[Rfam]
RNA sequence: AGAUACACCCGCGGGAGCCGGGUCGGGACCCGGCUGAGAGGGAGGCUGUCAGCCUCCGACCGCAUGAACCUGAUCCGGGUCAUACCGGCGAAGGAAGUGGCAGUAGCAACGUG
Numbered sequence: 001a002g003a004u005a006c007a008c009c010c011g012c013g014g015g016a017g018c019c020g021g022g023u024c025g026g027g028a029c030c031c032g033g034c035u036g037a038g039a040g041g042g043a044g045g046c047u048g049u050c051a052g053c054c055u056c057c058g059a060c061c062g063c064a065u066g067a068a069c070c071u072g073a074u075c076c077g078g079g080u081c082a083u084a085c086c087g088g089c090g091a092a093g094g095a096a097g098u099g100g101c102a103g104u105a106g107c108a109a110c111g112u113g
Stems, first nucleotide, its partner, number of pairs: 008099001010097001011063004017034005041057007069094003075088004

This 113-nucleotide sequence from Streptomonospora litoralis belongs to the Rfam family "TPP riboswitch aptamer (THI element)". Taxonomically the source falls in Streptomonospora (Bacteria, Bacillati, Actinomycetes, Streptosporangiales). A search with the family's covariance model found it, with a score of 65 bits. Rfam links the family to the GO term thiamine pyrophosphate binding.